[Rfam]
Nucleotides: 075
Base pairs, nucleotide, nucleotide: 014026015025016024031071032070033069038065039064045058047056049054
Number, partner (000 for none) and nucleotide at each position: 001000c002000u003000u004000c005000a006000c007000c008000g009000a010000a011000c012000c013000c014026a015025g016024c017000a018000g019000c020000a021000g022000c023000g024016g025015c026014u027000g028000c029000u030000c031071c032070g033069c034000g035000u036000c037000a038065c039064g040000g041000u042000c043000a044000c045058g046000a047056c048000c049054g050000u051000a052000g053000g054049u055000c056047g057000c058045c059000a060000g061000c062000a063000a064039c065038g066000c067000c068000u069033g070032c071031g072000c073000c074000u075000c
The record is a 75-nucleotide sequence, which matches "ASpks TB sRNA" in Rfam. Pairs were carried over by alignment from the consensus structure, which is taken from published work.